The record is a 79-nucleotide RNA from Medicago truncatula, which matches "MIR5269 microRNA precursor family" in Rfam. The base pairs follow the family's consensus structure, which was predicted with RNAalifold.
RNA sequence: UUGGAUGAAAACAAUGUGGAACCUAUACUUUAGAAAUGGAACCAAUAUAAAGUGGUGGGACAUAUAUUGAUUUCAUCAA
Numbered sequence: 001u002u003g004g005a006u007g008a009a010a011a012c013a014a015u016g017u018g019g020a021a022c023c024u025a026u027a028c029u030u031u032a033g034a035a036a037u038g039g040a041a042c043c044a045a046u047a048u049a050a051a052g053u054g055g056u057g058g059g060a061c062a063u064a065u066a067u068u069g070a071u072u073u074c075a076u077c078a079a
Stems, first nucleotide, its partner, number of pairs: 002079001004077007012069007023058003026054007
Dot-bracket structure: .(.(((((((.(((((((....((((((((((...............))))))).)))....))))))).))))))).)

Lineage of the source: Eukaryota > Tracheophyta > Pentapetalae > Fabales > Medicago.